[Rfam]
RNA sequence: UCCAUGGUGACGUGGAAUCUGAAGGAAGCGGGCGGCAAACCUCUGGUCUGAGGAACACGAACUUCAUACGAGGUUAGGUAUCGUUGGAUGAGUUUGCCAAACAAGACAAAAUCCUUUCUGCCAAAGGCGAUACAAAGUAAAUGAAGCAGAUAGAUGGAGGGAAAGAUUGUAUU
Numbered sequence: 001u002c003c004a005u006g007g008u009g010a011c012g013u014g015g016a017a018u019c020u021g022a023a024g025g026a027a028g029c030g031g032g033c034g035g036c037a038a039a040c041c042u043c044u045g046g047u048c049u050g051a052g053g054a055a056c057a058c059g060a061a062c063u064u065c066a067u068a069c070g071a072g073g074u075u076a077g078g079u080a081u082c083g084u085u086g087g088a089u090g091a092g093u094u095u096g097c098c099a100a101a102c103a104a105g106a107c108a109a110a111a112u113c114c115u116u117u118c119u120g121c122c123a124a125a126g127g128c129g130a131u132a133c134a135a136a137g138u139a140a141a142u143g144a145a146g147c148a149g150a151u152a153g154a155u156g157g158a159g160g161g162a163a164a165g166a167u168u169g170u171a172u173u
Base pairs, nucleotide, nucleotide: 001016002015003014004013005012006011028173031170036165040160041159042158043157044156045155046151047150048149049148050147062146063145064144065143066142067141073138074137075136078133079132080131081130082129083128086114087113088112089111092107093106094105095104

Rfam assigns this 173-nucleotide RNA sequence from Fictibacillus macauensis to the family "Group II catalytic intron D1-D4-3". A search with the family's covariance model found it, with a score of 140 bits.